[Rfam]
RNA sequence: ACGGUUCCGGUUCACGUCCGAUCAUCAGCACAUGAAGGCGACCCGGCGACC
Number, nucleotide and partner (000 for none) at each position: 001a000002c000003g051004g050005u049006u000007c046008c045009g044010g043011u000012u000013c000014a000015c040016g039017u038018c037019c000020g000021a000022u035023c034024a033025u032026c000027a000028g000029c000030a000031c000032a025033u024034g023035a022036a000037g018038g017039c016040g015041a000042c000043c010044c009045g008046g007047c000048g000049a005050c004051c003
Shown here is a 51-nucleotide RNA, a member of the family "L31-Actinobacteria ribosomal protein leader". The family's RNA type in Rfam is cis-regulatory leader.